[Rfam]
A member of the RNA family "NiCo (Nickel/Cobalt) riboswitch aptamer" from Clostridium tagluense, 95 nucleotides long. The source organism's lineage runs through Bacteria, Bacillati, Clostridia, Clostridiaceae and Clostridium. Rfam links the family to the GO terms cobalt ion binding and metal ion homeostasis. The family's consensus secondary structure is taken from published work.
RNA sequence: AUAGUAAAAACUGAGCAGGCGAUGAACCGUAAAAAGGUUCGUGGGGCUGGGCCUAAAUGGCAACAGGAUUAAAAUUACACACCUGUGGGACAGUU
Dot-bracket structure: .........((((..(.(((.((((((.........))))))...)))..(((.....))).(((((..............)))))..).)))).
Numbered sequence: 001a002u003a004g005u006a007a008a009a010a011c012u013g014a015g016c017a018g019g020c021g022a023u024g025a026a027c028c029g030u031a032a033a034a035a036g037g038u039u040c041g042u043g044g045g046g047c048u049g050g051g052c053c054u055a056a057a058u059g060g061c062a063a064c065a066g067g068a069u070u071a072a073a074a075u076u077a078c079a080c081a082c083c084u085g086u087g088g089g090a091c092a093g094u095u
Stems, first nucleotide, its partner, number of pairs: 010094004016089001018048003022042006051061003063086005